Shown here is a 105-nucleotide RNA from Salinihabitans flavidus, a member of the family "TPP riboswitch aptamer (THI element)". The family has 115 seed sequences and 16,130 matches in Rfam 15.1. The family's consensus secondary structure is taken from published work.
RNA sequence: GUCACCACCUCGGGGUGCCUUCGACGAAGGCUGAGAUGCACAUCUUGCGAACCCGUUGAACCUGAACCGGUUAAGACCGGCGGAGGGAAGGUUUGGAAUUCUCCU
Number, nucleotide and partner (000 for none) at each position: 001g000002u000003c000004a000005c000006c000007a092008c091009c090010u089011c055012g054013g053014g052015g000016u049017g031018c030019c029020u028021u027022c000023g000024a000025c000026g000027a021028a020029g019030g018031c017032u000033g000034a000035g000036a000037u000038g048039c047040a046041c000042a000043u000044c000045u000046u040047g039048c038049g016050a000051a000052c014053c013054c012055g011056u000057u000058g000059a000060a000061c086062c085063u084064g000065a000066a000067c080068c079069g078070g077071u000072u000073a000074a000075g000076a000077c070078c069079g068080g067081c000082g000083g000084a063085g062086g061087g000088a000089a010090g009091g008092u007093u000094u000095g000096g000097a000098a000099u000100u000101c000102u000103c000104c000105u000